[Rfam]
RNA sequence: AUGCCUUAAACUGAUGAGUAAGGAAAAUAACGAUGUGGGGUGACGCCUGCGUCCUCGUGCUCACUCACGAGAGGAAUUUUUGAAGGGGUUCAGGUCCGUCUGCUGAGGUGACUCGCUUACUUCGCAAGAUAUCUCGCAGAACCGGGAUCUUCCCU
Numbered sequence: 001a002u003g004c005c006u007u008a009a010a011c012u013g014a015u016g017a018g019u020a021a022g023g024a025a026a027a028u029a030a031c032g033a034u035g036u037g038g039g040g041u042g043a044c045g046c047c048u049g050c051g052u053c054c055u056c057g058u059g060c061u062c063a064c065u066c067a068c069g070a071g072a073g074g075a076a077u078u079u080u081u082g083a084a085g086g087g088g089u090u091c092a093g094g095u096c097c098g099u100c101u102g103c104u105g106a107g108g109u110g111a112c113u114c115g116c117u118u119a120c121u122u123c124g125c126a127a128g129a130u131a132u133c134u135c136g137c138a139g140a141a142c143c144g145g146g147a148u149c150u151u152c153c154c155u
Stems, first nucleotide, its partner, number of pairs: 004023005032053008054071005085155004092150006101139001106134005112128002115125002

A member of the RNA family "U12 minor spliceosomal RNA" from Pangasianodon hypophthalmus, 155 nucleotides long. Lineage of the source: Eukaryota > Vertebrata > Teleostei > Osteoglossocephalai > Pangasianodon. For this family Rfam cites "The divergent U12-type spliceosome is required for pre-mRNA splicing and is essential for development in Drosophila" (Otake et al., Mol Cell, 2002). It scores 114 bits against the family's covariance model. Clan: U2 clan. The pairing is the family consensus, mapped onto this sequence. Its family is annotated with U12 snRNP, pre-mRNA branch point binding and mRNA branch site recognition in the Gene Ontology. By type it is a spliceosomal small nuclear RNA.